This 134-nucleotide RNA sequence from Sorex araneus belongs to the Rfam family "Small nucleolar RNA SNORA55". The family's RNA type in Rfam is H/ACA-box small nucleolar RNA. Rfam's curators write: ACA55 is a member of the H/ACA class of snoRNA that guide the sites of modification of uridines to pseudouridines.
[Rfam]
RNA sequence: GCACCUAAAUCUUUCCCAUUCCUUGCUGCUUCGUGCUGGCAUGGGGACAGAUGGUGCUAUAGUACAAGCAGAGGAAAUCCAGAUGGGUUGUUUCCACUUGUCUUGGGACCUGUCUCUACAACUCUGCCACACUU
Number, nucleotide and partner (000 for none) at each position: 001g057002c056003a055004c054005c053006u000007a000008a000009a000010u000011c000012u000013u047014u046015c045016c044017c043018a042019u041020u000021c039022c038023u000024u000025g000026c000027u000028g000029c000030u000031u000032c000033g000034u000035g000036c000037u000038g022039g021040c000041a019042u018043g017044g016045g015046g014047a013048c000049a000050g000051a000052u000053g005054g004055u003056g002057c001058u000059a000060u000061a000062g000063u000064a000065c000066a000067a000068g127069c126070a125071g124072a123073g122074g000075a000076a000077a000078u000079c000080c000081a115082g114083a113084u112085g111086g110087g109088u108089u000090g000091u000092u000093u000094c106095c105096a104097c000098u000099u000100g000101u000102c000103u000104u096105g095106g094107g000108a088109c087110c086111u085112g084113u083114c082115u081116c000117u000118a000119c000120a000121a000122c073123u072124c071125u070126g069127c068128c000129a000130c000131a000132c000133u000134u000